The record is an 80-nucleotide RNA from Galbula dea, which matches "mir-1781 microRNA precursor family" in Rfam.
The base pairs follow the family's consensus structure, which was predicted with RNAalifold.
The family has 2 seed sequences and 312 matches in Rfam 15.1.
The match comes from Rfam's covariance-model search (76 bits).
RNA sequence: CAAGGAGCUGGUUUAACAGCUGAGUGAUUUAAAGCAAUUCCUUUAGUUUAAAAUCAUGCAGCUGUUGAACAAGCUCUUGC
Numbered sequence: 001c002a003a004g005g006a007g008c009u010g011g012u013u014u015a016a017c018a019g020c021u022g023a024g025u026g027a028u029u030u031a032a033a034g035c036a037a038u039u040c041c042u043u044u045a046g047u048u049u050a051a052a053a054u055c056a057u058g059c060a061g062c063u064g065u066u067g068a069a070c071a072a073g074c075u076c077u078u079g080c
Base pairs, nucleotide, nucleotide: 003078004077005076006075007074008073009072011070012069013068014067015066016065017064018063019062020061021060022059024057025056026055027054028053029052030051032049033048034047035046